[Rfam]
RNA sequence: CGUGGUCCGGAACCCGACACUUCGAGGGACAGAGGCGGGGGACCCACCAUCCCCUAGGGAUACGGAGAAAUACGCGACACCACGCGUGUGGCUCCUUGGGGUAAAGCCAAGCGGUACCGAUCACGGUGAGGCAUGGCCGGACGAACUCUCAGUCCGAACCCGACAGCUUACUUCGCAGGCGCACACACGAGAGGAA
Dot-bracket structure: (....((........................)).((((((....((..................................................))(((.....(((........................)))..((((.........))))...))).........)))))).)..................
Numbered sequence: 001c002g003u004g005g006u007c008c009g010g011a012a013c014c015c016g017a018c019a020c021u022u023c024g025a026g027g028g029a030c031a032g033a034g035g036c037g038g039g040g041g042a043c044c045c046a047c048c049a050u051c052c053c054c055u056a057g058g059g060a061u062a063c064g065g066a067g068a069a070a071u072a073c074g075c076g077a078c079a080c081c082a083c084g085c086g087u088g089u090g091g092c093u094c095c096u097u098g099g100g101g102u103a104a105a106g107c108c109a110a111g112c113g114g115u116a117c118c119g120a121u122c123a124c125g126g127u128g129a130g131g132c133a134u135g136g137c138c139g140g141a142c143g144a145a146c147u148c149u150c151a152g153u154c155c156g157a158a159c160c161c162g163a164c165a166g167c168u169u170a171c172u173u174c175g176c177a178g179g180c181g182c183a184c185a186c187a188c189g190a191g192a193g194g195a196a
Stems, first nucleotide, its partner, number of pairs: 001178001006033002035176006045098002099161003107136003139155004

Annotation:
The record is a 196-nucleotide RNA from Hoyosella subflava, which matches "c-di-AMP riboswitch aptamer (ydaO/yuaA leader)" in Rfam. The organism belongs to Hoyosella subflava, within Bacteria. A search with the family's covariance model found it, with a score of 48 bits. The base pairs follow the family's consensus structure.